[Rfam]
Fluoride riboswitch aptamer (crcB RNA motif): a 63-nucleotide RNA from Candidatus Kuenenia stuttgartensis. Taxonomically the source falls in Candidatus Kuenenia (Bacteria, Planctomycetota, Candidatus Brocadiales, Candidatus Brocadiaceae). Pairs were carried over by alignment from the consensus structure, which is taken from published work. Its family is annotated with response to fluoride and positive regulation of gene expression in the Gene Ontology.
RNA sequence: AAAUAUAUAUGCGAUGGAGUUCGCUUAAUCGCUGCUAUUGUAGCUAAUAACUCCUGUCAAAGA
Dot-bracket structure: ..........[[[..((((((]]]......((((......))))....)))))).........
Numbered sequence: 001a002a003a004u005a006u007a008u009a010u011g012c013g014a015u016g017g018a019g020u021u022c023g024c025u026u027a028a029u030c031g032c033u034g035c036u037a038u039u040g041u042a043g044c045u046a047a048u049a050a051c052u053c054c055u056g057u058c059a060a061a062g063a
Stems, first nucleotide, its partner, number of pairs: 011024003016054006031044004